Aggregatibacter sRNA 20: a 78-nucleotide sequence from Vespertiliibacter pulmonis. The family's RNA type in Rfam is small RNA. On this family, see Oogai et al., DNA Res 2017: "Small RNA repertoires and their intraspecies variation in Aggregatibacter actinomycetemcomitans". The source organism's lineage runs through Bacteria, Pseudomonadati, Gammaproteobacteria, Pasteurellaceae and Vespertiliibacter. Validated by RT-PCR and Northern blot.
RNA sequence: GAUAAAAGUUGUGUUCAGCAACUAAUUUCAUAAAUUUGCUUUCCGAGUGGCCCCUAAUUUAGGGGCUUUUUUUAUUAC
Numbered sequence: 001g002a003u004a005a006a007a008g009u010u011g012u013g014u015u016c017a018g019c020a021a022c023u024a025a026u027u028u029c030a031u032a033a034a035u036u037u038g039c040u041u042u043c044c045g046a047g048u049g050g051c052c053c054c055u056a057a058u059u060u061a062g063g064g065g066c067u068u069u070u071u072u073u074a075u076u077a078c
Base pairs, nucleotide, nucleotide: 001071002070004068005067020040022038024036025035026034051065052064053063054062055061056060